Group II catalytic intron D1-D4-3: a 184-nucleotide RNA from Sharpea azabuensis. The source organism's lineage runs through Bacteria, Bacillati, Bacillota, Erysipelotrichales and Sharpea.
RNA sequence: CAAGAAUUCAGUCUUUGUCAGGAUGACUACAGGCAGUUAAUGCCAGGCUAGCGAUUGCUUGUGUGUACGCACAAAAGCUUGAUUAGGCUUAAUGUUGAAUAAGGUUGCUAGUCAAACCGAAGUUAGAAAUGUAUACGUAAAAAAGACAGUAAGUCAAGAGGCAGCGAGGGAAAAAGAAUGAGUG
Numbered sequence: 001c002a003a004g005a006a007u008u009c010a011g012u013c014u015u016u017g018u019c020a021g022g023a024u025g026a027c028u029a030c031a032g033g034c035a036g037u038u039a040a041u042g043c044c045a046g047g048c049u050a051g052c053g054a055u056u057g058c059u060u061g062u063g064u065g066u067a068c069g070c071a072c073a074a075a076a077g078c079u080u081g082a083u084u085a086g087g088c089u090u091a092a093u094g095u096u097g098a099a100u101a102a103g104g105u106u107g108c109u110a111g112u113c114a115a116a117c118c119g120a121a122g123u124u125a126g127a128a129a130u131g132u133a134u135a136c137g138u139a140a141a142a143a144a145g146a147c148a149g150u151a152a153g154u155c156a157a158g159a160g161g162c163a164g165c166g167a168g169g170g171a172a173a174a175a176g177a178a179u180g181a182g183u184g
Stems, first nucleotide, its partner, number of pairs: 002015004044184002048180001052176001056171001058169003062163003066159001078158005087150003093144001095142002098124003103118004